[Rfam]
RNA sequence: UUUGAGGGGAAUGUUGUCUGGCUCGAGGCCACCCACUUGAUGACAAAAAUUCUGAUGCAACCAAUCUUUCCACUGUUAGUGGAAUGUGUAUACACACACACACACACACACAUAUAUAUACACGGAUAUACAGAUACACUGUUAGUGGUGUCUCGGACCAGGCUUCAUUCCCCCCAAC
Numbered sequence: 001u002u003u004g005a006g007g008g009g010a011a012u013g014u015u016g017u018c019u020g021g022c023u024c025g026a027g028g029c030c031a032c033c034c035a036c037u038u039g040a041u042g043a044c045a046a047a048a049a050u051u052c053u054g055a056u057g058c059a060a061c062c063a064a065u066c067u068u069u070c071c072a073c074u075g076u077u078a079g080u081g082g083a084a085u086g087u088g089u090a091u092a093c094a095c096a097c098a099c100a101c102a103c104a105c106a107c108a109c110a111c112a113u114a115u116a117u118a119u120a121c122a123c124g125g126a127u128a129u130a131c132a133g134a135u136a137c138a139c140u141g142u143u144a145g146u147g148g149u150g151u152c153u154c155g156g157a158c159c160a161g162g163c164u165u166c167a168u169u170c171c172c173c174c175c176a177a178c
Stems, first nucleotide, its partner, number of pairs: 002177003006173008016163006024155006
RNA: mir-166 microRNA precursor family